[Rfam]
RNA: Plastid-rps18 3UTR RNA
Organism: Gossypium anomalum
RNA sequence: UGAAAGUAUUUUACAAUUCAGAAGCAACUGUUUCUUGUACGUAUUGUGUAUUAAUCU
Numbered sequence: 001u002g003a004a005a006g007u008a009u010u011u012u013a014c015a016a017u018u019c020a021g022a023a024g025c026a027a028c029u030g031u032u033u034c035u036u037g038u039a040c041g042u043a044u045u046g047u048g049u050a051u052u053a054a055u056c057u
Stems, first nucleotide, its partner, number of pairs: 018037001020035006